[Rfam]
RNA sequence: UAAGAAUUGGGGCAAACUCGCGGAAACGCGGGGACGCAAAGCUACGGGUCUACGGGAUAUCAUCCUAUGAUGGCCGGGUUGCACUC
Numbered sequence: 001u002a003a004g005a006a007u008u009g010g011g012g013c014a015a016a017c018u019c020g021c022g023g024a025a026a027c028g029c030g031g032g033g034a035c036g037c038a039a040a041g042c043u044a045c046g047g048g049u050c051u052a053c054g055g056g057a058u059a060u061c062a063u064c065c066u067a068u069g070a071u072g073g074c075c076g077g078g079u080u081g082c083a084c085u086c
Stems, first nucleotide, its partner, number of pairs: 012037002017032006040080004045076003048071003055065004
Record summary: c-di-GMP-I riboswitch aptamer: an 86-nucleotide RNA sequence from Paenalicyclobacillus ferrooxydans. The organism belongs to Paenalicyclobacillus, within Bacteria. GEMM was predicted in a large-scale screen for bacterial structured RNA regulatory elements. The family's consensus secondary structure is taken from published work. For this family Rfam cites "Identification of 22 candidate structured RNAs in bacteria using the CMfinder comparative genomics pipeline" (Weinberg et al., Nucleic Acids Res, 2007).